[Rfam]
RNA sequence: CAACAUGUUCCCAAAAGCUGUGGCUGGUUGUAACCAUAGGCUCUCCAACUGAAUGCAAGAGCAAUCUGAGAGACUUUGACAACUCAGGUGAGCAUAAUACCUGCAUCUGCCACUCGCCUUUCCUAUAUCU
Numbered sequence: 001c002a003a004c005a006u007g008u009u010c011c012c013a014a015a016a017g018c019u020g021u022g023g024c025u026g027g028u029u030g031u032a033a034c035c036a037u038a039g040g041c042u043c044u045c046c047a048a049c050u051g052a053a054u055g056c057a058a059g060a061g062c063a064a065u066c067u068g069a070g071a072g073a074c075u076u077u078g079a080c081a082a083c084u085c086a087g088g089u090g091a092g093c094a095u096a097a098u099a100c101c102u103g104c105a106u107c108u109g110c111c112a113c114u115c116g117c118c119u120u121u122c123c124u125a126u127a128u129c130u
Stems, first nucleotide, its partner, number of pairs: 011039001017034001019032004068122005083109001085103004

Small nucleolar RNA SNORA44: a 130-nucleotide sequence from Pipistrellus kuhlii. Rfam classes the family as an H/ACA-box small nucleolar RNA. Rfam links the family to the GO terms RNA processing and nucleolus. NCBI's taxonomy places the organism under Eukaryota, Deuterostomia, Teleostomi, Chiroptera, Pipistrellus. The match comes from Rfam's covariance-model search (108 bits). The family is grouped with related families in Rfam's "SNORA44 clan". About the family: ACA44 is a member of the H/ACA class of snoRNA that guide the sites of modification of uridines to pseudouridines. A reference for the family is Huttenhofer et al. (2001), "RNomics: an experimental approach that identifies 201 candidates for novel, small, non-messenger RNAs in mouse", EMBO J.